[Rfam]
RNA sequence: GGGGGCGAACGGGUUCGACGGGGAUGGAGUCCCCUGGGAAGCGAGCCGAGGUCCCCACCUCCUCGUAAAAAAGGUGGGAACACGAAUAAGUGCCAACGAACCUGUUGCUGUUGCCGCCUAAUAGAUAGGCGGCCGUCCUCUCCGGAGUUGGCUGGGCUCCGGAAGAGGGCGUGAGGGAUCCAGCCUACCGAUCUGGGCUCCGCCUUCCGGCCCGGAUCGGGAAGGUUCAGGAAGGCUGUGGGAAGCGACACCCUGCCCGUGGGGGGUCCUUCCCGAGACACGAAACACGGGCUGCGCUCGGAGAAGCCCAGGGGCCUCCAUCUUCGGACGGGGGUUCGAAUCCCCCCGCCUCCACCA
Numbered sequence: 001g002g003g004g005g006c007g008a009a010c011g012g013g014u015u016c017g018a019c020g021g022g023g024a025u026g027g028a029g030u031c032c033c034c035u036g037g038g039a040a041g042c043g044a045g046c047c048g049a050g051g052u053c054c055c056c057a058c059c060u061c062c063u064c065g066u067a068a069a070a071a072a073g074g075u076g077g078g079a080a081c082a083c084g085a086a087u088a089a090g091u092g093c094c095a096a097c098g099a100a101c102c103u104g105u106u107g108c109u110g111u112u113g114c115c116g117c118c119u120a121a122u123a124g125a126u127a128g129g130c131g132g133c134c135g136u137c138c139u140c141u142c143c144g145g146a147g148u149u150g151g152c153u154g155g156g157c158u159c160c161g162g163a164a165g166a167g168g169g170c171g172u173g174a175g176g177g178a179u180c181c182a183g184c185c186u187a188c189c190g191a192u193c194u195g196g197g198c199u200c201c202g203c204c205u206u207c208c209g210g211c212c213c214g215g216a217u218c219g220g221g222a223a224g225g226u227u228c229a230g231g232a233a234g235g236c237u238g239u240g241g242g243a244a245g246c247g248a249c250a251c252c253c254u255g256c257c258c259g260u261g262g263g264g265g266g267u268c269c270u271u272c273c274c275g276a277g278a279c280a281c282g283a284a285a286c287a288c289g290g291g292c293u294g295c296g297c298u299c300g301g302a303g304a305a306g307c308c309c310a311g312g313g314g315c316c317u318c319c320a321u322c323u324u325c326g327g328a329c330g331g332g333g334g335u336u337c338g339a340a341u342c343c344c345c346c347c348g349c350c351u352c353c354a355c356c357a
Stems, first nucleotide, its partner, number of pairs: 001353007019326010031314008042300005047065005054078007113133008134171005139165001141163002144160003150185007188220006202236006237277001239275005249265001251263001255292003260287002330346005

transfer-messenger RNA: a 357-nucleotide sequence from Thermotoga neapolitana. The sequence is in the family's curated seed alignment. On this family, see Williams and Bartel, RNA 1996: "Phylogenetic analysis of tmRNA secondary structure". The family's consensus secondary structure is taken from published work. The source organism's lineage runs through Bacteria, Thermotogae, Thermotogales, Thermotogaceae and Thermotoga neapolitana. Gene Ontology term of the family: RNA catabolic process. Bacterial tmRNA, also known as 10Sa RNA or SsrA, is named for its dual tRNA and mRNA-like properties.